[Rfam]
Nucleotides: 151
Stems, first nucleotide, its partner, number of pairs: 002019006028069005033059001038055007085094003099120003106113002126144005
Number, partner (000 for none) and nucleotide at each position: 001000c002019c003018u004017g005016u006015u007014a008000u009000u010000c011000c012000a013000u014007u015006a016005g017004c018003a019002g020000u021000a022000g023000c024000c025000u026000a027000u028069c029068g030067u031066c032065a033059c034000c035000g036000a037000a038055g039054c040053g041052g042051c043050u044049g045000g046000c047000a048000a049044c050043g051042g052041c053040c054039g055038u056000g057000a058000g059033g060000c061000a062000g063000c064000a065032u066031g067030g068029c069028g070000a071000g072000a073000a074000a075000a076000g077000g078000c079000a080000g081000c082000c083000c084000u085094c086093c087092c088000g089000a090000a091000a092087g093086g094085g095000u096000c097000a098000a099120g100119c101118c102000g103000a104000a105000a106113c107112c108000g109000c110000g111000a112107g113106g114000c115000a116000g117000a118101g119100g120099c121000g122000a123000a124000a125000a126144g127143c128142u129141g130140g131000a132000a133000g134000c135000a136000a137000c138000g139000g140130c141129c142128g143127g144126c145000u146000g147000g148000g149000g150000a151000g
Group II catalytic intron D1-D4-7: a 151-nucleotide RNA sequence from butyrate-producing bacterium SM4/1.
Rfam's curators write: Group II introns are found in rRNA, tRNA and mRNA of organelles in fungi, plants and protists, and also in mRNA in bacteria.
A search with the family's covariance model found it, with a score of 85 bits.
Taxonomically the source falls in Eubacteriales (Bacteria, Bacillati, Bacillota, Clostridia).
Gene Ontology term of the family: Group II intron splicing.
The pairing is the family consensus, mapped onto this sequence.